RNA sequence: UAUUAUUCUCGGGGCGGGGUGAGAAUCCCCACCGGUGGUAAAGUCCACGACUCGGGCGUAAAUGCCCGACUGAUGCGGUGAAACUCCGCAACCGACGGUAACGCGCUUUUAGGCGUGAAGUCCGGAUGAGAGAGAAUGCCG
Numbered sequence: 001u002a003u004u005a006u007u008c009u010c011g012g013g014g015c016g017g018g019g020u021g022a023g024a025a026u027c028c029c030c031a032c033c034g035g036u037g038g039u040a041a042a043g044u045c046c047a048c049g050a051c052u053c054g055g056g057c058g059u060a061a062a063u064g065c066c067c068g069a070c071u072g073a074u075g076c077g078g079u080g081a082a083a084c085u086c087c088g089c090a091a092c093c094g095a096c097g098g099u100a101a102c103g104c105g106c107u108u109u110u111a112g113g114c115g116u117g118a119a120g121u122c123c124g125g126a127u128g129a130g131a132g133a134g135a136a137u138g139c140c141g
Stems, first nucleotide, its partner, number of pairs: 004138007017029003033094002035048004043092002052069002074090005096124003
Rfam assigns this 141-nucleotide sequence from Clostridium sp. CAG:413 to the family "FMN riboswitch aptamer (RFN element)". Taxonomically the source falls in Clostridium (Bacteria, Bacillati, Bacillota, Clostridiaceae). Pairs were carried over by alignment from the consensus structure, which is taken from published work. From the family's description: The RFN element is a highly conserved domain that is found frequently in the 5'-untranslated regions of prokaryotic mRNAs that encode for flavin mononucleotide (FMN) biosynthesis and transport proteins. This element is a metabolite-dependent riboswitch that directly binds FMN in the absence of proteins. In Bacillus subtilis, the riboswitch most likely controls gene expression by causing premature transcription termination within the 5' untranslated region of the ribDEAHT operon and precluding access to the ribosome-binding site of ypaA mRNA.The FMN riboswitch structure, reported in present an FMN-bound six-stem junction, adopts a butterfly-like scaffold, stapled together by opposingly directed but nearly identically folded peripheral domains. It scores 95 bits against the family's covariance model.